[Rfam]
RNA sequence: CCAUUUUUCUCUUUGGUUAUCUAGCUGUAUGAUUUAUAUUUUACUUCAUAAAGCUAGGUUACCAAAGCUAAAACAG
Dot-bracket structure: (..((.(...(((((((.((((((((.(((((.............))))).)))))))).)))))))..).))..)
A member of the RNA family "mir-9/mir-79 microRNA precursor family" from Capitella teleta, 76 nucleotides long. The organism belongs to Capitella, within Eukaryota. The family has 214 seed sequences and 5,647 matches in Rfam 15.1. For this family Rfam cites "Identification of novel genes coding for small expressed RNAs" (Lagos-Quintana et al., Science, 2001). The base pairs follow the family's consensus structure, which was predicted with RNAalifold.